RNA sequence: AUCGUUCAUCUUGCUACCGACAAUUCGGACAAAAGACGGAAGUAGGUUGUUAAUCUGCCGAAGGAACGCACU
Numbered sequence: 001a002u003c004g005u006u007c008a009u010c011u012u013g014c015u016a017c018c019g020a021c022a023a024u025u026c027g028g029a030c031a032a033a034a035g036a037c038g039g040a041a042g043u044a045g046g047u048u049g050u051u052a053a054u055c056u057g058c059c060g061a062a063g064g065a066a067c068g069c070a071c072u
Stems, first nucleotide, its partner, number of pairs: 003068005009036004039069001045059003